[Rfam]
RNA sequence: ACAUAUAGGAUAGCGCCAGGCCUUAAAUAUAAGGUGACGAGGAUUGAACUUAUCGAGAUUUCGGCGGAUGGUUCAAGGUAGUGUAAUCUUUAGAGUUAAUAAAAACCAUUGUGUAAAUAUUGGUACAGAGAUUAACUUACACACCUAA
Number, nucleotide and partner (000 for none) at each position: 001a000002c000003a000004u000005a000006u000007a000008g000009g000010a000011u000012a000013g000014c000015g000016c000017c000018a000019g000020g035021c034022c033023u032024u031025a030026a000027a000028u000029a000030u025031a024032a023033g022034g021035u020036g000037a000038c000039g000040a000041g000042g000043a000044u000045u075046g074047a073048a072049c071050u000051u000052a000053u064054c063055g062056a061057g000058a000059u000060u000061u056062c055063g054064g053065c000066g000067g000068a000069u000070g000071g049072u048073u047074c046075a045076a089077g088078g087079u086080a000081g000082u000083g000084u000085a000086a079087u078088c077089u076090u000091u000092a000093g138094a137095g136096u135097u134098a133099a132100u000101a000102a000103a000104a000105a000106c123107c122108a121109u000110u119111g118112u117113g000114u000115a000116a000117a112118u111119a110120u000121u108122g107123g106124u000125a000126c000127a000128g000129a000130g000131a000132u099133u098134a097135a096136c095137u094138u093139a000140c000141a000142c000143a000144c000145c000146u000147a000148a000
A member of the RNA family "glmS glucosamine-6-phosphate activated ribozyme aptamer" from Ruoffia halotolerans, 148 nucleotides long.
It is annotated as a riboswitch.
The organism belongs to Ruoffia, within Bacteria.
Pairs were carried over by alignment from the consensus structure, which is taken from published work.
On this family, see Winkler et al., Nature 2004: "Control of gene expression by a natural metabolite-responsive ribozyme".